[Rfam]
RNA sequence: UGGUCAAUGAUGUCUUGAGCACUGUGCACUCUGAGUUCUGGGAAGCAGUUGAUGGAGUGUGUUCCUAAGAACAGGCUGAGGCUG
Numbered sequence: 001u002g003g004u005c006a007a008u009g010a011u012g013u014c015u016u017g018a019g020c021a022c023u024g025u026g027c028a029c030u031c032u033g034a035g036u037u038c039u040g041g042g043a044a045g046c047a048g049u050u051g052a053u054g055g056a057g058u059g060u061g062u063u064c065c066u067a068a069g070a071a072c073a074g075g076c077u078g079a080g081g082c083u084g
Base pairs, nucleotide, nucleotide: 002083003082004081005080038048039047040046

Rfam assigns this 84-nucleotide sequence from Fukomys damarensis to the family "small Cajal body-specific RNA 18".
The source organism's lineage runs through Eukaryota, Deuterostomia, Gnathostomata, Euteleostomi and Fukomys.
A reference for the family is Darzacq et al. (2002), "Cajal body-specific small nuclear RNAs: a novel class of 2'-O-methylation and pseudouridylation guide RNAs", EMBO J.
By type it is a small Cajal body RNA.
The family's consensus secondary structure was predicted with PFOLD.
Rfam 15.1 lists 406 matches to the family in 191 species.
About the family: scaRNAs are a specific class of small nuclear RNAs which localise to the Cajal bodies and guide the modification of RNA polymerase II transcribed spliceosomal RNAs U1, U2, U4, U5 and U12. This C/D box domain U91 (also known as U4-8) was identified by Darzacq and is predicted to guide the 2'O-ribose methylation of U4 snRNA C8.